[Rfam]
The record is a 68-nucleotide sequence from Meridianimarinicoccus roseus, which matches "Singlet oxygen resistance RNA X" in Rfam. For this family Rfam cites "Regulation of a polyamine transporter by the conserved 3' UTR-derived sRNA SorX confers resistance to singlet oxygen and organic hydroperoxides in Rhodobacter sphaeroides" (Peng et al., RNA Biol, 2016). Gene Ontology term of the family: response to photooxidative stress. About the family: SorX (RSs2461)like SorY is a singlet oxygen induced sRNA that counteracts oxidative stress by targeting mRNA for a transporter in Rhodobacter. It also has an impact on resistance against organic hydroperoxides. It targets SD sequence of potA mRNA via an aSD sequence. The aSD sequence and some neighbouring nucleotides are identical to the one of SorY (targets takP mRNA). The match comes from Rfam's covariance-model search (63 bits). Taxonomically the source falls in Meridianimarinicoccus (Bacteria, Pseudomonadota, Rhodobacterales, Paracoccaceae).
RNA sequence: AUCCCGCGCACCGGGGUUAUGGUGCACCUCCCUGUUGGACUGGCCCCCGCCUUGGCGGGGGCCUUUUU
Numbered sequence: 001a002u003c004c005c006g007c008g009c010a011c012c013g014g015g016g017u018u019a020u021g022g023u024g025c026a027c028c029u030c031c032c033u034g035u036u037g038g039a040c041u042g043g044c045c046c047c048c049g050c051c052u053u054g055g056c057g058g059g060g061g062c063c064u065u066u067u068u
Base pairs, nucleotide, nucleotide: 008025009024010023011022012021043062044061045060046059047058048057049056050055